[Rfam]
Shown here is an 83-nucleotide RNA from Alligator sinensis, a member of the family "Mammalian CPEB3 ribozyme". The organism belongs to Alligator, within Eukaryota. About the family: The mammalian CPEB3 ribozyme is a self cleaving RNA located in the second intron of the CPEB3 gene which belongs to a family of genes regulating messenger RNA polyadenylation. This ribozyme is highly conserved and found only in mammals. The CPEB3 ribozyme is structurally and biochemically related to the human hepatitis delta virus (HDV) ribozyme and the HDV ribozyme is proposed to have arisen from the human transcriptome. There is currently only one other known self cleaving ribozyme in mammals, the CoTC motif. A search with the family's covariance model found it, with a score of 53 bits.
RNA sequence: AAAUAAUAGCAAGGGGUCAUAGCAGAAGUAUUCAUGUUGUGAGCCCUAUCAGGUAAUACCUAGUAAUACCUGUGAAUUCUGAU
Numbered sequence: 001a002a003a004u005a006a007u008a009g010c011a012a013g014g015g016g017u018c019a020u021a022g023c024a025g026a027a028g029u030a031u032u033c034a035u036g037u038u039g040u041g042a043g044c045c046c047u048a049u050c051a052g053g054u055a056a057u058a059c060c061u062a063g064u065a066a067u068a069c070c071u072g073u074g075a076a077u078u079c080u081g082a083u
Base pairs, nucleotide, nucleotide: 013046014045015044017042018041021083023081024080025079026078027077028040029039030038050072051071052070053069054068055067